[Rfam]
RNA sequence: AAGCAGGAAAGUUAUAAUAUAGCUGUGCAGUGCUAUGUUAUCGUUCCCCCUGCUUAAAGAAAAAUGCUUCCUUCUAUCCCUGCCUGCUGCUUUGUUCACACGGCAGGUAGGGACGCUUGGUUUCAUACAU
Numbered sequence: 001a002a003g004c005a006g007g008a009a010a011g012u013u014a015u016a017a018u019a020u021a022g023c024u025g026u027g028c029a030g031u032g033c034u035a036u037g038u039u040a041u042c043g044u045u046c047c048c049c050c051u052g053c054u055u056a057a058a059g060a061a062a063a064a065u066g067c068u069u070c071c072u073u074c075u076a077u078c079c080c081u082g083c084c085u086g087c088u089g090c091u092u093u094g095u096u097c098a099c100a101c102g103g104c105a106g107g108u109a110g111g112g113a114c115g116c117u118u119g120g121u122u123u124c125a126u127a128c129a130u
Stems, first nucleotide, its partner, number of pairs: 003053005014041010079111004084106006
This 130-nucleotide RNA sequence from Merops nubicus belongs to the Rfam family "Small nucleolar RNA SNORA63". E3 belongs to the H/ACA class of snoRNAs and is involved in the processing of eukaryotic pre-rRNA and has regions of complementarity to 18S rRNA. E3 is encoded in introns in the gene for protein synthesis initiation factor 4AII. Rfam 15.1 lists 1,279 matches to the family in 601 species. Lineage of the source: Eukaryota > Chordata > Theropoda > Coraciiformes > Merops. A search with the family's covariance model found it, with a score of 116 bits.